This 119-nucleotide RNA sequence from Gossypium raimondii belongs to the Rfam family "MIR7502 microRNA precursor family".

[Rfam]
RNA sequence: UGUUAAAAGUUUCAUCCAUUUGUACUAUUAACAUUGGCUUAACUGAUAAAAUAAUCAGAUAAUUAUAUUUACGUAUAAAAACUAAUUUUUAACAAUAAAAAUAGAUGAAAUUUUUAACA
Numbered sequence: 001u002g003u004u005a006a007a008a009g010u011u012u013c014a015u016c017c018a019u020u021u022g023u024a025c026u027a028u029u030a031a032c033a034u035u036g037g038c039u040u041a042a043c044u045g046a047u048a049a050a051a052u053a054a055u056c057a058g059a060u061a062a063u064u065a066u067a068u069u070u071a072c073g074u075a076u077a078a079a080a081a082c083u084a085a086u087u088u089u090u091a092a093c094a095a096u097a098a099a100a101a102u103a104g105a106u107g108a109a110a111u112u113u114u115u116a117a118c119a
Stems, first nucleotide, its partner, number of pairs: 002118015018102004023097002026094001028092004033087001
Taxonomically the source falls in Gossypium (Eukaryota, Mesangiospermae, eudicotyledons, rosids). Rfam 15.1 lists 74,505 matches to the family in 24 species.